[Rfam]
This 147-nucleotide sequence from Ornithinibacillus caprae belongs to the Rfam family "c-di-AMP riboswitch aptamer (ydaO/yuaA leader)". Gene Ontology terms of the family: cyclic-di-AMP binding and regulation of gene expression. The organism belongs to Ornithinibacillus, within Bacteria. Pairs were carried over by alignment from the consensus structure. A search with the family's covariance model found it, with a score of 97 bits.
RNA sequence: CACCUUUUAUCGCUGAAUCAAUGAUUGAACGGGGGAACCAAUUAGGAUAGAGCAUCUAUCUUGGGGUGAAUCUUAUGAAAAUAAGAGGGGAUACUCUCAGGUCCCUAAUCCGACAGCUAACCUCGUAAGCGUUUAUUUAUUUGAGAG
Numbered sequence: 001c002a003c004c005u006u007u008u009a010u011c012g013c014u015g016a017a018u019c020a021a022u023g024a025u026u027g028a029a030c031g032g033g034g035g036a037a038c039c040a041a042u043u044a045g046g047a048u049a050g051a052g053c054a055u056c057u058a059u060c061u062u063g064g065g066g067u068g069a070a071u072c073u074u075a076u077g078a079a080a081a082u083a084a085g086a087g088g089g090g091a092u093a094c095u096c097u098c099a100g101g102u103c104c105c106u107a108a109u110c111c112g113a114c115a116g117c118u119a120a121c122c123u124c125g126u127a128a129g130c131g132u133u134u135a136u137u138u139a140u141u142u143g144a145g146a147g
Stems, first nucleotide, its partner, number of pairs: 011131004018028003029126006039063002064111003072085004088105004